[Rfam]
The record is an 80-nucleotide RNA sequence from Conger conger, which matches "mir-26 microRNA precursor family" in Rfam. Taxonomically the source falls in Conger (Eukaryota, Eumetazoa, Actinopterygii, Actinopteri). On this family, see Lagos-Quintana et al., Science 2001: "Identification of novel genes coding for small expressed RNAs".
RNA sequence: CCUGGGCCUGUUUCAAGUAAUCCAGGAUAGGCUUGUUUUAGAGGGAAAGCCUAUUCCGGAUGACUUGGUUCAGGAGCACG
Numbered sequence: 001c002c003u004g005g006g007c008c009u010g011u012u013u014c015a016a017g018u019a020a021u022c023c024a025g026g027a028u029a030g031g032c033u034u035g036u037u038u039u040a041g042a043g044g045g046a047a048a049g050c051c052u053a054u055u056c057c058g059g060a061u062g063a064c065u066u067g068g069u070u071c072a073g074g075a076g077c078a079c080g
Stems, first nucleotide, its partner, number of pairs: 003078002007074004014067005020061003025056009